[Rfam]
RNA sequence: UCCCUGCUUCACCUCCCUGAGCAGGAGCCUGACCGUGUGACAGCGCCAGGCUUUCAAGCCCCGGCUUUGCCGGGGCUUUUUUAU
Numbered sequence: 001u002c003c004c005u006g007c008u009u010c011a012c013c014u015c016c017c018u019g020a021g022c023a024g025g026a027g028c029c030u031g032a033c034c035g036u037g038u039g040a041c042a043g044c045g046c047c048a049g050g051c052u053u054u055c056a057a058g059c060c061c062c063g064g065c066u067u068u069g070c071c072g073g074g075g076c077u078u079u080u081u082u083a084u
Base pairs, nucleotide, nucleotide: 003025004024005023006022007021008020027051028050029049030048034045035044036043058076059075060074061073062072063071064070065069
Dot-bracket structure: ..((((((...........)))))).((((...(((......)))..))))......((((((((...))))))))........

Annotation:
Shown here is an 84-nucleotide RNA sequence from Methylibium petroleiphilum, a member of the family "Burkholderia RNA 7 (anti-hemB)". On this family, see Ramos et al., Genomics 2013: "Experimental identification of small non-coding regulatory RNAs in the opportunistic human pathogen Burkholderia cenocepacia J2315". The sequence is in the family's curated seed alignment. Rfam's curators write: This RNA motif was identified by computational search in b-proteobacteria Burkholderia. Co-purified with Hfq, expression confirmed by Northern blot. The organism belongs to Methylibium petroleiphilum, within Bacteria. Rfam 15.1 lists 479 matches to the family in 458 species.